[Rfam]
Nucleotides: 045
Base pairs, nucleotide, nucleotide: 001020003018004017005016006015007014008013034045035044036043037042
Number, partner (000 for none) and nucleotide at each position: 001020a002000a003018g004017u005016g006015a007014g008013g009000a010000c011000g012000a013008c014007c015006u016005c017004g018003c019000c020001u021000c022000u023000c024000u025000a026000u027000u028000u029000c030000a031000a032000u033000u034045g035044g036043g037042g038000a039000c040000g041000g042037c043036c044035c045034c
Notes: Shown here is a 45-nucleotide RNA from Nitrosomonas aestuarii, a member of the family "Guanidine-II riboswitch aptamer (mini-ykkC)". The base pairs follow the family's consensus structure, which is taken from published work. Rfam 15.1 lists 1,589 matches to the family in 1,229 species.